[Rfam]
RNA sequence: GGGGGUGGAUUGGGUCUGGUGGCCCGCCUGGACUUCAAAUCCAGCCGUGCGGCAGCGAUCCUGUCGCAGGUGGGUUCGAUUCCCACCCGCCCUC
Numbered sequence: 001g002g003g004g005g006u007g008g009a010u011u012g013g014g015u016c017u018g019g020u021g022g023c024c025c026g027c028c029u030g031g032a033c034u035u036c037a038a039a040u041c042c043a044g045c046c047g048u049g050c051g052g053c054a055g056c057g058a059u060c061c062u063g064u065c066g067c068a069g070g071u072g073g074g075u076u077c078g079a080u081u082c083c084c085a086c087c088c089g090c091c092c093u094c
Stems, first nucleotide, its partner, number of pairs: 001094008011026006028044005048068005071085004
Selenocysteine transfer RNA: a 94-nucleotide RNA sequence from a Syntrophomonadaceae bacterium. A search with the family's covariance model found it, with a score of 70 bits. The source organism's lineage runs through Bacteria, Bacillati, Bacillota, Clostridia and Syntrophomonadaceae.